[Rfam]
RNA: Group II catalytic intron D1-D4-2
RNA sequence: GAGGGCAGGCCCCUCGAAGCCGUUUUACAGGAAAUGGCUUCAAACCCCCCACUGCUGCUGCGUUUAAGAGACGUGGUGGUGAGCGAGAUGGGAAAAGGUCGGGCAUGAUCCGAUCAGGU
Numbered sequence: 001g002a003g004g005g006c007a008g009g010c011c012c013c014u015c016g017a018a019g020c021c022g023u024u025u026u027a028c029a030g031g032a033a034a035u036g037g038c039u040u041c042a043a044a045c046c047c048c049c050c051a052c053u054g055c056u057g058c059u060g061c062g063u064u065u066a067a068g069a070g071a072c073g074u075g076g077u078g079g080u081g082a083g084c085g086a087g088a089u090g091g092g093a094a095a096a097g098g099u100c101g102g103g104c105a106u107g108a109u110c111c112g113a114u115c116a117g118g119u
Base pairs, nucleotide, nucleotide: 001015002014003013004012005011016041017040018039019038020037021036023034024033025032026031046118048092049091050090051089053086054080055079057077058076059075061073062072063071064070097115098114099113100112101111102110